[Rfam]
Rfam assigns this 115-nucleotide RNA sequence from Zobellia galactanivorans to the family "SAM riboswitch aptamer (S box leader)". It scores 74 bits against the family's covariance model.
RNA sequence: CAGUUAUCAAGAAAGGUGGAGGGAAUAGACCCUUUGAAACCUUAGCAACCCUUUGUUUCUUAUACAGAGAAGGUGCUACAUUCUAUCCUGAAAUAAUUAUUAGGACAGAUAACGA
Dot-bracket structure: ..((((((....(((((...(((....[.)))......)))))((((.((((((((.......))))))..))))))....(.]..(((((........)))))..)))))))..